[Rfam]
RNA sequence: GUAACGGUCACCGCAAGGUUUCUGGUGGCGACACCAGACAGACUUCCGCGUCUUGCUUGGCGAGGCGCGACCGGCACAGCCGGAAGACAACCCGCCGGUACACACACCGGC
Number, nucleotide and partner (000 for none) at each position: 001g000002u000003a000004a000005c000006g000007g000008u000009c000010a019011c018012c017013g000014c000015a000016a000017g012018g011019u010020u000021u038022c037023u036024g035025g034026u033027g000028g000029c000030g000031a000032c000033a026034c025035c024036a023037g022038a021039c000040a000041g000042a000043c000044u000045u000046c000047c069048g068049c067050g066051u065052c064053u063054u062055g061056c000057u000058u000059g000060g000061c055062g054063a053064g052065g051066c050067g049068c048069g047070a000071c083072c082073g081074g080075c000076a000077c000078a000079g000080c074081c073082g072083g071084a000085a000086g000087a000088c000089a000090a000091c000092c000093c000094g111095c110096c109097g108098g107099u106100a000101c000102a000103c000104a000105c000106a099107c098108c097109g096110g095111c094

Rfam assigns this 111-nucleotide RNA sequence from Pseudomonas fluorescens to the family "Pseudomon-groES RNA". The family's RNA type in Rfam is cis-regulatory element. Lineage of the source: Bacteria > Pseudomonadati > Pseudomonadota > Pseudomonadales > Pseudomonas fluorescens.